[Rfam]
RNA sequence: UCGCGUCAAGCGCCGAAGGCAGGAGCGGGGGACCCAAGGUAAGUGCCGGCCCCGGACGCCGUACGAGUGGCGACACCACGCGUACGACCACCGGACCGGCUUGGGGUGAAGCCGCGUGACAGCGCGGCCGGGCAGCUCACUCGCCCGAACCCGACAGCUCACCUCGCAGGCGUCGGUGAGGAGAUGA
Numbered sequence: 001u002c003g004c005g006u007c008a009a010g011c012g013c014c015g016a017a018g019g020c021a022g023g024a025g026c027g028g029g030g031g032a033c034c035c036a037a038g039g040u041a042a043g044u045g046c047c048g049g050c051c052c053c054g055g056a057c058g059c060c061g062u063a064c065g066a067g068u069g070g071c072g073a074c075a076c077c078a079c080g081c082g083u084a085c086g087a088c089c090a091c092c093g094g095a096c097c098g099g100c101u102u103g104g105g106g107u108g109a110a111g112c113c114g115c116g117u118g119a120c121a122g123c124g125c126g127g128c129c130g131g132g133c134a135g136c137u138c139a140c141u142c143g144c145c146c147g148a149a150c151c152c153g154a155c156a157g158c159u160c161a162c163c164u165c166g167c168a169g170g171c172g173u174c175g176g177u178g179a180g181g182a183g184a185u186g187a
Base pairs, nucleotide, nucleotide: 011172012171013170014169025167026166027165028164029163030162035103036102037101038100104152105151106150112127113126114125115124130146131145132144133143